[Rfam]
RNA sequence: ACCGGAAAGUUUCACAGCUUUCUGUAAGCAGAGUUGCGGUCUAUAAAGAGAUGAAUUCAUUCGUUGGUGGAUUAACGGUCUGCUUUGUGCUUUGUCGAAAACAGUGUCUUAGAGAGUCCGGUGUCAACAUUCGAGCUCGAGCGUAGGCUUGGGUUGGGAGGUUGUUCAAUACUGGGGAAACGCCCGAGGGUAGCAAUACAGCAGGGAAAACCUAGAGCACUGGUUCGGCUGUGAGAUCGCACGUUGGAGAAGUAUUGAAGUAUACUACCACUACGGAUGGGAACUUCCUCUUUUU
Numbered sequence: 001a002c003c004g005g006a007a008a009g010u011u012u013c014a015c016a017g018c019u020u021u022c023u024g025u026a027a028g029c030a031g032a033g034u035u036g037c038g039g040u041c042u043a044u045a046a047a048g049a050g051a052u053g054a055a056u057u058c059a060u061u062c063g064u065u066g067g068u069g070g071a072u073u074a075a076c077g078g079u080c081u082g083c084u085u086u087g088u089g090c091u092u093u094g095u096c097g098a099a100a101a102c103a104g105u106g107u108c109u110u111a112g113a114g115a116g117u118c119c120g121g122u123g124u125c126a127a128c129a130u131u132c133g134a135g136c137u138c139g140a141g142c143g144u145a146g147g148c149u150u151g152g153g154u155u156g157g158g159a160g161g162u163u164g165u166u167c168a169a170u171a172c173u174g175g176g177g178a179a180a181c182g183c184c185c186g187a188g189g190g191u192a193g194c195a196a197u198a199c200a201g202c203a204g205g206g207a208a209a210a211c212c213u214a215g216a217g218c219a220c221u222g223g224u225u226c227g228g229c230u231g232u233g234a235g236a237u238c239g240c241a242c243g244u245u246g247g248a249g250a251a252g253u254a255u256u257g258a259a260g261u262a263u264a265c266u267a268c269c270a271c272u273a274c275g276g277a278u279g280g281g282a283a284c285u286u287c288c289u290c291u292u293u294u295u
Stems, first nucleotide, its partner, number of pairs: 001040003004023008028037003043295001045293006054285001056283003060279001061276003065273006077265001079264001081262007089253005095247001100245003104242004108235004113230002116226001118223007125164004130159003134155009165171001172215005183206003190199003

This 295-nucleotide sequence from Parasitella parasitica belongs to the Rfam family "Metazoan signal recognition particle RNA". NCBI's taxonomy places the organism under Eukaryota, Opisthokonta, Fungi, Mucoromycetes, Parasitella. A reference for the family is Regalia et al. (2002), "Prediction of signal recognition particle RNA genes", Nucleic Acids Res. By type it is a non-coding RNA gene. The base pairs follow the family's consensus structure, which is taken from published work. About the family: The signal recognition particle (SRP) is a universally conserved ribonucleoprotein. It is involved in the co-translational targeting of proteins to membranes. The eukaryotic SRP consists of a 300-nucleotide 7S RNA and six proteins: SRPs 72, 68, 54, 19, 14, and 9. Rfam links the family to the GO terms signal recognition particle, endoplasmic reticulum targeting and SRP-dependent cotranslational protein targeting to membrane, signal sequence recognition.